The family of this 120-nucleotide RNA sequence from Rhizobium etli is "Rhizobiales sRNA Atu_C8". It is annotated as a small RNA.

RNA sequence: GGAAACGAUGACGAUUGUCGUAGUGGUGAUAUCGCGCAUGGGCAGAGGGUAUAGCCCUCCGGCAACCGCCGCCCAUGCGCCGAAAACAGGUCCCUGACGGGGCCUUUUUUUUGUGCCCCG
Numbered sequence: 001g002g003a004a005a006c007g008a009u010g011a012c013g014a015u016u017g018u019c020g021u022a023g024u025g026g027u028g029a030u031a032u033c034g035c036g037c038a039u040g041g042g043c044a045g046a047g048g049g050u051a052u053a054g055c056c057c058u059c060c061g062g063c064a065a066c067c068g069c070c071g072c073c074c075a076u077g078c079g080c081c082g083a084a085a086a087c088a089g090g091u092c093c094c095u096g097a098c099g100g101g102g103c104c105u106u107u108u109u110u111u112u113g114u115g116c117c118c119c120g
Stems, first nucleotide, its partner, number of pairs: 009026001030115003034080009045059005062069002086106001088105007
Record summary:
Taxonomically the source falls in Rhizobium etli bv. mimosae (Bacteria, Pseudomonadota, Rhizobiaceae, Rhizobium). On this family, see Wilms et al., RNA Biol 2012: "Deep sequencing uncovers numerous small RNAs on all four replicons of the plant pathogen Agrobacterium tumefaciens". The family's consensus secondary structure was predicted with CMfinder.